[Rfam]
RNA sequence: GGUCACGAGUGACAGCGUUUUGGCCCCGGCUUGCUGUCCGGCAACCCUCCUCCGCGGUGGGGUGCCCCGGGUGAUGACCAGGCCGGACGCCAUGAGGCGCUCCGGCAAGCGCGGACC
Numbered sequence: 001g002g003u004c005a006c007g008a009g010u011g012a013c014a015g016c017g018u019u020u021u022g023g024c025c026c027c028g029g030c031u032u033g034c035u036g037u038c039c040g041g042c043a044a045c046c047c048u049c050c051u052c053c054g055c056g057g058u059g060g061g062g063u064g065c066c067c068c069g070g071g072u073g074a075u076g077a078c079c080a081g082g083c084c085g086g087a088c089g090c091c092a093u094g095a096g097g098c099g100c101u102c103c104g105g106c107a108a109g110c111g112c113g114g115a116c117c
Stems, first nucleotide, its partner, number of pairs: 001079004009039001011038006022031002040066003045062003049057002082106006088099004